[Rfam]
RNA sequence: CUGCUGUGAUGAUGUCCACGUGGUUUCGCUCACUUCUGAUAUGUGGUGAGGACAGUUUCCUCUUGGCUGUCUGAGCAG
Numbered sequence: 001c002u003g004c005u006g007u008g009a010u011g012a013u014g015u016c017c018a019c020g021u022g023g024u025u026u027c028g029c030u031c032a033c034u035u036c037u038g039a040u041a042u043g044u045g046g047u048g049a050g051g052a053c054a055g056u057u058u059c060c061u062c063u064u065g066g067c068u069g070u071c072u073g074a075g076c077a078g
Stems, first nucleotide, its partner, number of pairs: 001078004